RNA sequence: UAAUACAUCCAAAAGCAAUCCAAAAAUCUUACCGAAUUUCAAACCAAAUUCAUCACCCAAUCUACCCAUCCAAAAAUGUCUCCCUGCGACUGCAACUGCUGUGCUGGCGAAUGCAACUCGUGCAGCUGCACCAGCUGCUCUGUAAGUUGAUAUAAAAG
Numbered sequence: 001u002a003a004u005a006c007a008u009c010c011a012a013a014a015g016c017a018a019u020c021c022a023a024a025a026a027u028c029u030u031a032c033c034g035a036a037u038u039u040c041a042a043a044c045c046a047a048a049u050u051c052a053u054c055a056c057c058c059a060a061u062c063u064a065c066c067c068a069u070c071c072a073a074a075a076a077u078g079u080c081u082c083c084c085u086g087c088g089a090c091u092g093c094a095a096c097u098g099c100u101g102u103g104c105u106g107g108c109g110a111a112u113g114c115a116a117c118u119c120g121u122g123c124a125g126c127u128g129c130a131c132c133a134g135c136u137g138c139u140c141u142g143u144a145a146g147u148u149g150a151u152a153u154a155a156a157a158g
Stems, first nucleotide, its partner, number of pairs: 085109003092102003113138003122129002
Shown here is a 158-nucleotide RNA sequence from Blastomyces silverae, a member of the family "A. fumigatus sRNA Afu_254". Lineage of the source: Eukaryota > Opisthokonta > Pezizomycotina > Ajellomycetaceae > Blastomyces. For this family Rfam cites "Small ncRNA transcriptome analysis from Aspergillus fumigatus suggests a novel mechanism for regulation of protein synthesis" (Jochl et al., Nucleic Acids Res, 2008). It scores 101 bits against the family's covariance model.